[Rfam]
RNA sequence: AGUAAUGAGACCCGGCGCCAAGCCCUGACUGGCCGGUCGGCAACCCUCCCUUUCGCGGCGGGGUGCCUCAGGUGAAUACUCGGCAUAUCGAUAUUCGAGCUGCAAGCGUGAAAG
Numbered sequence: 001a002g003u004a005a006u007g008a009g010a011c012c013c014g015g016c017g018c019c020a021a022g023c024c025c026u027g028a029c030u031g032g033c034c035g036g037u038c039g040g041c042a043a044c045c046c047u048c049c050c051u052u053u054c055g056c057g058g059c060g061g062g063g064u065g066c067c068u069c070a071g072g073u074g075a076a077u078a079c080u081c082g083g084c085a086u087a088u089c090g091a092u093a094u095u096c097g098a099g100c101u102g103c104a105a106g107c108g109u110g111a112a113a114g
Stems, first nucleotide, its partner, number of pairs: 001080004009038001012036005021030002039067003044063003048058002083103003088098004
The family of this 114-nucleotide sequence is "SAM (S-adenosyl methionine) riboswitch aptamer". SAM-IV is a mRNA element that regulates gene expression via direct sensing of S-adenosylmethionine (SAM or AdoMet). The base pairs follow the family's consensus structure, which is taken from published work.